[Rfam]
RNA sequence: UUCAAGUGGAAUCGAAUACCACUUUAAAAAUAGGGCGCAUCCGAAAAGCCAUACGAGUAGGUCUAUA
Numbered sequence: 001u002u003c004a005a006g007u008g009g010a011a012u013c014g015a016a017u018a019c020c021a022c023u024u025u026a027a028a029a030a031u032a033g034g035g036c037g038c039a040u041c042c043g044a045a046a047a048g049c050c051a052u053a054c055g056a057g058u059a060g061g062u063c064u065a066u067a
Stems, first nucleotide, its partner, number of pairs: 006022004034050003041061002